[Rfam]
RNA sequence: GGAUCAGGACGACCUGACCGGCGUUUCUUCUCCAGGGACGACCCUA
Numbered sequence: 001g002g003a004u005c006a007g008g009a010c011g012a013c014c015u016g017a018c019c020g021g022c023g024u025u026u027c028u029u030c031u032c033c034a035g036g037g038a039c040g041a042c043c044c045u046a
Stems, first nucleotide, its partner, number of pairs: 001019002004017005034045004